[Rfam]
RNA sequence: UUAUUAAUAUAUGAAUCGCCUAAGACUCAGGUGACCGAUUGGUCUUAAUUUUGCCUGCCGAGGAGUUUAACGACUUUUCCCUGUGUUUUAGCGAGCAUGGGGAUUUUUUAUGCGAUUU
Numbered sequence: 001u002u003a004u005u006a007a008u009a010u011a012u013g014a015a016u017c018g019c020c021u022a023a024g025a026c027u028c029a030g031g032u033g034a035c036c037g038a039u040u041g042g043u044c045u046u047a048a049u050u051u052u053g054c055c056u057g058c059c060g061a062g063g064a065g066u067u068u069a070a071c072g073a074c075u076u077u078u079c080c081c082u083g084u085g086u087u088u089u090a091g092c093g094a095g096c097a098u099g100g101g102g103a104u105u106u107u108u109u110a111u112g113c114g115a116u117u118u
Base pairs, nucleotide, nucleotide: 028057029056030055031054032053033044034043035042078103079102080101081100082099083098084097085096086095087094
Rfam assigns this 118-nucleotide RNA from Fructilactobacillus florum to the family "Ribosomal protein L10 leader".
Taxonomically the source falls in Fructilactobacillus florum (Bacteria, Bacillati, Lactobacillaceae, Fructilactobacillus).
It scores 65 bits against the family's covariance model.
This family is a putative r-protein leader autoregulatory structure found in B. subtilis and other low-GC Gram-positive bacteria. It is located in the 5' untranslated regions of mRNAs encoding ribosomal proteins L10 and L12 (rplJ-rplL).